Background
The record is a 59-nucleotide RNA, which matches "Xanthine riboswitch aptamer (NMT1 RNA)" in Rfam. A reference for the family is Xu et al. (2021), "Insights into xanthine riboswitch structure and metal ion-mediated ligand recognition", Nucleic Acids Res.
[Rfam]
RNA sequence: GCCAAGAGUAGAAGCGUUCACCUGCACAGUUUGCUUGCAGUCCGGAAAUUGCUCUUGAA
Numbered sequence: 001g002c003c004a005a006g007a008g009u010a011g012a013a014g015c016g017u018u019c020a021c022c023u024g025c026a027c028a029g030u031u032u033g034c035u036u037g038c039a040g041u042c043c044g045g046a047a048a049u050u051g052c053u054c055u056u057g058a059a
Stems, first nucleotide, its partner, number of pairs: 005055006015044001018046002022040005
Dot-bracket structure: ....((((((....[..((..(((((.........)))))...]))...))))))....